[Rfam]
RNA sequence: GUUCGUCUUCAGGGGCAGGGUGAAAUUCCCGACCGGCGGUAAAAGUCCGCGACCCGUACCUUGUGUGCGGUUGAGUAAGGUGUGAUUCCUUGACCGAUAGUUAAAGUCUAGAUAAAAGAAGAUGGGG
Number, nucleotide and partner (000 for none) at each position: 001g000002u000003u125004c124005g123006u122007c121008u120009u119010c118011a000012g000013g000014g000015g000016c000017a000018g030019g029020g028021u000022g000023a000024a000025a000026u000027u000028c020029c019030c018031g000032a107033c106034c096035g095036g050037c049038g048039g047040u000041a000042a000043a000044a000045g094046u093047c039048c038049g037050c036051g000052a000053c000054c070055c069056g000057u000058a000059c000060c000061u000062u000063g000064u000065g000066u000067g000068c000069g055070g054071u000072u000073g000074a000075g000076u092077a091078a090079g089080g088081u000082g000083u000084g000085a000086u000087u000088c080089c079090u078091u077092g076093a046094c045095c035096g034097a000098u110099a109100g108101u000102u000103a000104a000105a000106g033107u032108c100109u099110a098111g000112a000113u000114a000115a000116a000117a000118g010119a009120a008121g007122a006123u005124g004125g003126g000127g000
This 127-nucleotide RNA from Lacticaseibacillus manihotivorans belongs to the Rfam family "FMN riboswitch aptamer (RFN element)".
A search with the family's covariance model found it, with a score of 98 bits.
Pairs were carried over by alignment from the consensus structure, which is taken from published work.
Taxonomically the source falls in Lacticaseibacillus manihotivorans (Bacteria, Bacillati, Bacillota, Lactobacillaceae).